[Rfam]
Nucleotides: 187
Stems, first nucleotide, its partner, number of pairs: 012172003018059008060168006070081002082153003090128007131147004
Number, partner (000 for none) and nucleotide at each position: 001000a002000a003000a004000u005000c006000a007000a008000a009000u010000a011000u012172g013171c014170c015000u016000a017000a018059u019058c020057g021056g022055a023054g024053u025052g026000a027000a028000g029000u030000u031000c032000a033000a034000g035000a036000g037000u038000u039000c040000c041000c042000u043000c044000u045000u046000g047000a048000g049000u050000u051000g052025c053024g054023c055022u056021c057020u058019g059018a060168g061167c062166c063165g064164g065163g066000g067000a068000a069000c070081c071080a072000c073000a074000g075000u076000u077000u078000u079000c080071u081070g082153g083152g084151g085000u086000g087000a088000a089000u090128c091127c092126a093125c094124u095123g096122g097000a098000g099000a100000g101000c102000u103000u104000c105000g106000u107000u108000g109000u110000a111000u112000g113000g114000c115000g116000a117000a118000g119000u120000g121000g122096u123095c124094a125093g126092u127091g128090g129000u130000a131147g132146g133145g134144a135000g136000c137000c138000u139000u140000c141000c142000g143000u144134u145133u146132c147131c148000g149000a150000a151084u152083c153082c154000g155000a156000c157000a158000g159000c160000u161000a162000a163065c164064c165063c166062g167061g168060c169000c170014g171013g172012c173000u174000a175000a176000a177000a178000g179000g180000a181000a182000g183000a184000u185000u186000u187000g

This 187-nucleotide sequence from Corynebacterium epidermidicanis belongs to the Rfam family "c-di-AMP riboswitch aptamer (ydaO/yuaA leader)". Rfam's curators write: This family represents a conserved RNA structure found upstream of the ydaO and yuaA genes in Bacillus subtilis and related genes in other bacteria. NCBI's taxonomy places the organism under Bacteria, Bacillati, Actinomycetes, Mycobacteriales, Corynebacterium.